[Rfam]
RNA sequence: CCUUUGGAGUGUCAAACAAACUUUAGUAGUAUUAGCAACAAUACAAAAAAGGACACUGUGAAUAAGGAA
Numbered sequence: 001c002c003u004u005u006g007g008a009g010u011g012u013c014a015a016a017c018a019a020a021c022u023u024u025a026g027u028a029g030u031a032u033u034a035g036c037a038a039c040a041a042u043a044c045a046a047a048a049a050a051g052g053a054c055a056c057u058g059u060g061a062a063u064a065a066g067g068a069a
Base pairs, nucleotide, nucleotide: 001067002066003065004064009056010055011054012053013052021051022050023049029044030043031042032041033040
The family of this 69-nucleotide RNA is "RAGATH-18 RNA". Rfam classes the family as a small RNA. Rfam's curators put it in the seed alignment. The family's consensus secondary structure is taken from published work.